[Rfam]
RNA: c-di-AMP riboswitch aptamer (ydaO/yuaA leader)
Organism: Aneurinibacillus danicus
RNA sequence: CAAAAACAAACGCCUAAUCCAGAUAAUACAGAAUCUGGAACGGGGGAACCAAGCAAAUGGGGUGAAAUCGCGCUUUUAUGCGUGGUCGGGCGCCUUUCGACCGAACCCGUCAGCUAACCUCGUCGGCUAAAGAGAGAGGGAGA
Numbered sequence: 001c002a003a004a005a006a007c008a009a010a011c012g013c014c015u016a017a018u019c020c021a022g023a024u025a026a027u028a029c030a031g032a033a034u035c036u037g038g039a040a041c042g043g044g045g046g047a048a049c050c051a052a053g054c055a056a057a058u059g060g061g062g063u064g065a066a067a068u069c070g071c072g073c074u075u076u077u078a079u080g081c082g083u084g085g086u087c088g089g090g091c092g093c094c095u096u097u098c099g100a101c102c103g104a105a106c107c108c109g110u111c112a113g114c115u116a117a118c119c120u121c122g123u124c125g126g127c128u129a130a131a132g133a134g135a136g137a138g139g140g141a142g143a
Stems, first nucleotide, its partner, number of pairs: 012127003018039007040123006050059002060108003068085004088102002091099001